[Rfam]
Nucleotides: 359
Base pairs, nucleotide, nucleotide: 001322002321003320009319011199012198013197014196016193018192019191020190022086023085024084025083026082027081028080030079031078032075033074034073035072036071037070038069039068040067045063046062047061048060049059050058051057090186091185092184093182094181095180101175102174103173104172105171106170107169108152109151112148113147114146115145116144117143118142119141123134124133125132160167161166204245205244206243207242208241209240214238218234219233220232221231256318257317258316259315260314261313264296265295266294267293268292269291270290271289272288273287274286275285276284277283300307301306324351325350326349333344334343335342336341
Number, partner (000 for none) and nucleotide at each position: 001322g002321g003320c004000c005000u006000a007000a008000a009319g010000c011199g012198u013197c014196c015000g016193u017000a018192g019191c020190u021000g022086g023085c024084c025083g026082u027081g028080a029000a030079a031078g032075u033074u034073c035072g036071u037070c038069g039068g040067g041000a042000a043000a044000u045063c046062c047061a048060u049059c050058c051057g052000c053000u054000c055000a056000a057051c058050g059049g060048a061047u062046g063045g064000g065000c066000g067040u068039c069038c070037g071036g072035c073034g074033a075032a076000a077000a078031c079030u080028u081027c082026a083025c084024g085023g086022c087000u088000u089000g090186g091185g092184a093182c094181c095180g096000g097000a098000a099000g100000g101175c102174u103173c104172g105171a106170g107169g108152g109151g110000u111000a112148c113147g114146u115145c116144c117143g118142g119141g120000g121000u122000a123134g124133g125132a126000g127000u128000g129000a130000a131000a132125u133124c134123c135000u136000g137000u138000a139000a140000u141119c142118c143117u144116g145115g146114a147113c148112g149000g150000a151109c152108c153000g154000c155000c156000g157000a158000u159000g160167g161166c162000g163000a164000a165000a166161g167160c168000a169107c170106c171105u172104c173103g174102a175101g176000a177000a178000g179000a180095c181094g182093g183000a184092u185091c186090c187000g188000a189000c190020a191019g192018u193016g194000a195000g196014g197013g198012a199011c200000g201000a202000a203000a204245g205244c206243u207242a208241g209240g210000g211000u212000c213000u214238c215000g216000a217000a218234c219233c220232g221231g222000a223000u224000u225000a226000g227000a228000u229000a230000c231221c232220c233219g234218g235000g236000u237000a238214g239000u240209c241208c242207u243206a244205g245204c246000c247000g248000u249000a250000a251000a252000c253000g254000a255000u256318g257317u258316u259315c260314a261313c262000u263000a264296g265295g266294u267293g268292u269291g270290g271289c272288a273287c274286a275285g276284g277283c278000u279000a280000c281000g282000a283277g284276c285275c286274u287273g288272u289271g290270c291269u292268g293267u294266g295265c296264c297000g298000u299000a300307g301306g302000g303000a304000a305000g306301c307300c308000g309000a310000g311000a312000a313261g314260u315259g316258a317257a318256c319009c320003g321002c322001c323000u324351g325350g326349g327000a328000a329000g330000u331000a332000c333344g334343u335342c336341c337000g338000c339000a340000a341336g342335g343334a344333u345000g346000a347000a348000a349326c350325u351324u352000a353000a354000a355000g356000g357000a358000a359000u